[Rfam]
The family of this 95-nucleotide RNA sequence from Tropicimonas isoalkanivorans is "Glycine riboswitch aptamer". This family represents the bacterial glycine riboswitch. The base pairs follow the family's consensus structure. A search with the family's covariance model found it, with a score of 59 bits. Taxonomically the source falls in Tropicimonas (Bacteria, Pseudomonadati, Pseudomonadota, Rhodobacterales).
RNA sequence: GGACCCUGUGUCGGGAGAAUCCGGUCCUGCUGGACCGGUGCCGAAGGAGCAACCGCCCCGGUAAACUCUCAGGCGCAAAGGACCGCGCAGGGGAA
Numbered sequence: 001g002g003a004c005c006c007u008g009u010g011u012c013g014g015g016a017g018a019a020u021c022c023g024g025u026c027c028u029g030c031u032g033g034a035c036c037g038g039u040g041c042c043g044a045a046g047g048a049g050c051a052a053c054c055g056c057c058c059c060g061g062u063a064a065a066c067u068c069u070c071a072g073g074c075g076c077a078a079a080g081g082a083c084c085g086c087g088c089a090g091g092g093g094a095a
Stems, first nucleotide, its partner, number of pairs: 006090005012085003021038004040074003043070002047068003053061002